[Rfam]
RNA sequence: AUUAGUUGUCACGCUUACACUAACUGUGAUAACUCUAUAGGUAUUCAUUCGAUGCCAACAUAAUGAAAACCUAUUUAUGAAAGCUGUUGUUCAAGUGAUUAGCCUAGUCGUGAUUAGCGUGGUGGUGAUUAUUAUCCCACCGUGCGGGGCUGCACUUGGACGAAGAAAAGCUUACUAAACAAGCUUAAAUCUCAAGAAAACCCCCGUACCAACUGGUCGGGGGUUUUUUUUGGGGCAUCAAUCAAGCGACAGGAGAACACUCAAUGAUAAUUAGAAUAUUGUUCUGUCCCUGCGGCG
Numbered sequence: 001a002u003u004a005g006u007u008g009u010c011a012c013g014c015u016u017a018c019a020c021u022a023a024c025u026g027u028g029a030u031a032a033c034u035c036u037a038u039a040g041g042u043a044u045u046c047a048u049u050c051g052a053u054g055c056c057a058a059c060a061u062a063a064u065g066a067a068a069a070c071c072u073a074u075u076u077a078u079g080a081a082a083g084c085u086g087u088u089g090u091u092c093a094a095g096u097g098a099u100u101a102g103c104c105u106a107g108u109c110g111u112g113a114u115u116a117g118c119g120u121g122g123u124g125g126u127g128a129u130u131a132u133u134a135u136c137c138c139a140c141c142g143u144g145c146g147g148g149g150c151u152g153c154a155c156u157u158g159g160a161c162g163a164a165g166a167a168a169a170g171c172u173u174a175c176u177a178a179a180c181a182a183g184c185u186u187a188a189a190u191c192u193c194a195a196g197a198a199a200a201c202c203c204c205c206g207u208a209c210c211a212a213c214u215g216g217u218c219g220g221g222g223g224u225u226u227u228u229u230u231u232g233g234g235g236c237a238u239c240a241a242u243c244a245a246g247c248g249a250c251a252g253g254a255g256a257a258c259a260c261u262c263a264a265u266g267a268u269a270a271u272u273a274g275a276a277u278a279u280u281g282u283u284c285u286g287u288c289c290c291u292g293c294g295g296c297g
Base pairs, nucleotide, nucleotide: 005033006032007031008030009029010028011027012026013024015022037074038073039072040071041070042069044067045066046065047064048063085253087252089250090249091248097243098242099241100240101238102236103235104234105233107231109119110118111117121141122140123139124138125137127136128135129134142161143160145158146157147156148155162193163192164190169186170185172183173182195229196228197227198226199225200224201223202222203221204220205219206218208217209216210215254285255284256283257282258281259280261274263272
The family of this 297-nucleotide RNA from Sodalis glossinidius is "Soft rot Enterobacteriaceae Rev 39 5'UTR". The organism belongs to Sodalis glossinidius, within Bacteria. Rfam's curators write: From bacteria cultured under starvation conditions. On this family, see Kwenda et al., BMC Genomics 2016: "Discovery and profiling of small RNAs responsive to stress conditions in the plant pathogen Pectobacterium atrosepticum".